[Rfam]
Shown here is an 86-nucleotide RNA sequence from Medicago truncatula, a member of the family "MIR2617 microRNA precursor family".
RNA sequence: UUGUAGUGUGACAUGCCCGAUUGGUUCUUACUCUGAUGAUUUAUUUAUUAUUUAAUUGAUUUUGGGUAACGUGGUGUUACAAUUGG
Numbered sequence: 001u002u003g004u005a006g007u008g009u010g011a012c013a014u015g016c017c018c019g020a021u022u023g024g025u026u027c028u029u030a031c032u033c034u035g036a037u038g039a040u041u042u043a044u045u046u047a048u049u050a051u052u053u054a055a056u057u058g059a060u061u062u063u064g065g066g067u068a069a070c071g072u073g074g075u076g077u078u079a080c081a082a083u084u085g086g
Stems, first nucleotide, its partner, number of pairs: 002086001005083001007081008016073001018071002021068001
About this RNA:
The organism belongs to Medicago, within Eukaryota.